[Rfam]
RNA sequence: AAGGUCCGUUCGCUACAUUCGUCUGGCAGGGACGGGGGAACCAAAUGCGGGCUUUUUAGAGAAGUCCUUGGGGUGAAGUCGCAGAUCUCUUUGAGAGAGAAGUGGCCGGGUGACUCCCAUCCGAAUCCGACAGCUUACCUCGCAGGCAUUGGGAGAGGUCAA
Numbered sequence: 001a002a003g004g005u006c007c008g009u010u011c012g013c014u015a016c017a018u019u020c021g022u023c024u025g026g027c028a029g030g031g032a033c034g035g036g037g038g039a040a041c042c043a044a045a046u047g048c049g050g051g052c053u054u055u056u057u058a059g060a061g062a063a064g065u066c067c068u069u070g071g072g073g074u075g076a077a078g079u080c081g082c083a084g085a086u087c088u089c090u091u092u093g094a095g096a097g098a099g100a101a102g103u104g105g106c107c108g109g110g111u112g113a114c115u116c117c118c119a120u121c122c123g124a125a126u127c128c129g130a131c132a133g134c135u136u137a138c139c140u141c142g143c144a145g146g147c148a149u150u151g152g153g154a155g156a157g158g159u160c161a162a
Base pairs, nucleotide, nucleotide: 006146007145011031013029033142034141035140036139037138042070043069071128072127073126079105080104081103082102108122109121110120111119
RNA: c-di-AMP riboswitch aptamer (ydaO/yuaA leader)